[Rfam]
RNA sequence: GUGCCGGCGUUGGCCGAGUGGAUACUUCGAUAACUUCACAACUUGUUUAAGGAAACUGGUUCGAAACCUCACAGAUCCACUGGCGCGAUCCGGCUUUUUU
Numbered sequence: 001g002u003g004c005c006g007g008c009g010u011u012g013g014c015c016g017a018g019u020g021g022a023u024a025c026u027u028c029g030a031u032a033a034c035u036u037c038a039c040a041a042c043u044u045g046u047u048u049a050a051g052g053a054a055a056c057u058g059g060u061u062c063g064a065a066a067c068c069u070c071a072c073a074g075a076u077c078c079a080c081u082g083g084c085g086c087g088a089u090c091c092g093g094c095u096u097u098u099u100u
Stems, first nucleotide, its partner, number of pairs: 003094005013084004018080004026065005
The family of this 100-nucleotide RNA from Patiria miniata is "Vault RNA". Rfam describes the family as follows. This family of RNAs are found as part of the enigmatic vault ribonucleoprotein complex. Rfam classes the family as a non-coding RNA gene. A reference for the family is Stadler et al. (2009), "Evolution of Vault RNAs", Mol Biol Evol. The family has 73 seed sequences and 2,873 matches in Rfam 15.1.